[Rfam]
RNA sequence: UAAUUUGAAAACCUCCGAGCCUGGUUUUCUAAGGGCUCAUGCCUAUGAAUCCAGGCCGAUAGGGUCAAGAGGGAAACUUCUUGGCCUCCCGUGUUUGGAAAGGAGGGAUGGUUGUGUUGCU
Numbered sequence: 001u002a003a004u005u006u007g008a009a010a011a012c013c014u015c016c017g018a019g020c021c022u023g024g025u026u027u028u029c030u031a032a033g034g035g036c037u038c039a040u041g042c043c044u045a046u047g048a049a050u051c052c053a054g055g056c057c058g059a060u061a062g063g064g065u066c067a068a069g070a071g072g073g074a075a076a077c078u079u080c081u082u083g084g085c086c087u088c089c090c091g092u093g094u095u096u097g098g099a100a101a102g103g104a105g106g107g108a109u110g111g112u113u114g115u116g117u118u119g120c121u
Stems, first nucleotide, its partner, number of pairs: 003115002012106005019056006027049003033044004062087011088098002
This 121-nucleotide sequence from Pseudothermotoga lettingae belongs to the Rfam family "Molybdenum/Tungsten riboswitch aptamer (Moco RNA motif)". Rfam 15.1 lists 1,248 matches to the family in 836 species. On this family, see Regulski et al., Mol Microbiol 2008: "in molybdenum cofactor and tungsten cofactor metabolism". The organism belongs to Pseudothermotoga lettingae, within Bacteria.